This 130-nucleotide RNA from Streptomyces mexicanus belongs to the Rfam family "Streptomyces RNA 5676". Lineage of the source: Bacteria > Actinomycetota > Kitasatosporales > Streptomycetaceae > Streptomyces. It scores 125 bits against the family's covariance model. Identified by deep sequencing of transcriptome at the end of exponential growth phase. Appears longer on northern blot than sequencing transcript.
RNA sequence: AGAUGAGAGAUACACCCGCUCACGGGAAACCGUGGGCGACAUCAGGCCGUGGCCUCCCCAGCUUCGACCUGGUACGUGCCUCGCGCACACAACCGGAGCCCCCGGGCUCCGGGUCUCCUCACCGAUCGGA
Dot-bracket structure: ...((((.((......(((((((((....)))))))))..((((((.((.(((.......))).)).))))))..((((.....))))....((((((((....))))))))...))))))((....)).

Background: Pairs were carried over by alignment from the consensus structure.